[Rfam]
RNA sequence: GGAAGGGCAACCAUCCUGGUGGGUGGGCCGGGCUUCAAACCCGGUGGGUGGCGCCAUGCGUCGCCGGGCGGGUUCGACUCCCGUGCCCUUCC
Number, nucleotide and partner (000 for none) at each position: 001g092002g091003a090004a089005g088006g087007g086008c085009a084010a000011c026012c025013a024014u023015c022016c021017u000018g000019g000020u000021g016022g015023g014024u013025g012026g011027g045028c044029c043030g042031g041032g040033c000034u000035u000036c000037a000038a000039a000040c032041c031042c030043g029044g028045u027046g000047g065048g064049u063050g062051g061052c000053g000054c000055c000056a000057u000058g000059c000060g000061u051062c050063g049064c048065c047066g000067g000068g000069c083070g082071g081072g080073u000074u000075c000076g000077a000078c000079u000080c072081c071082c070083g069084u009085g008086c007087c006088c005089u004090u003091c002092c001
RNA: Selenocysteine transfer RNA
Organism: Ottowia testudinis